mir-16 microRNA precursor family: a 69-nucleotide sequence from Aquilegia coerulea. A reference for the family is Calin et al. (2002), "Frequent deletions and down-regulation of micro- RNA genes miR15 and miR16 at 13q14 in chronic lymphocytic leukemia", Proc Natl Acad Sci U S A. Pairs were carried over by alignment from the consensus structure, which was predicted with PFOLD. The organism belongs to Aquilegia, within Eukaryota.
RNA sequence: UCGGUUUUAUAACAGCAAAUUGAUAUUUUGAAACAAAAUCAAAAUAUCAAUUUGCUGUUAUAAAACCGA
Numbered sequence: 001u002c003g004g005u006u007u008u009a010u011a012a013c014a015g016c017a018a019a020u021u022g023a024u025a026u027u028u029u030g031a032a033a034c035a036a037a038a039u040c041a042a043a044a045u046a047u048c049a050a051u052u053u054g055c056u057g058u059u060a061u062a063a064a065a066c067c068g069a
Base pairs, nucleotide, nucleotide: 001069002068003067005065006064007063010062011059012058013057014056015055016054017053018052020049022048023047024046025045026044027043